Rfam assigns this 102-nucleotide RNA sequence from Ornithinibacillus halotolerans to the family "Purine riboswitch aptamer".
NCBI's taxonomy places the organism under Bacteria, Bacillati, Caryophanales, Bacillaceae, Ornithinibacillus.

RNA sequence: AACCAAACUUAAUAUGUUUUUCAUAUAAUCGCGGGGAUAUGGCCUGCAAGUUUCUACCGGUUUACCGUAAAUAAACUGACUAUGGAAAGCGAGUACGGAUCA
Numbered sequence: 001a002a003c004c005a006a007a008c009u010u011a012a013u014a015u016g017u018u019u020u021u022c023a024u025a026u027a028a029u030c031g032c033g034g035g036g037a038u039a040u041g042g043c044c045u046g047c048a049a050g051u052u053u054c055u056a057c058c059g060g061u062u063u064a065c066c067g068u069a070a071a072u073a074a075a076c077u078g079a080c081u082a083u084g085g086a087a088a089g090c091g092a093g094u095a096c097g098g099a100u101c102a
Stems, first nucleotide, its partner, number of pairs: 018088008029049001031047005058078007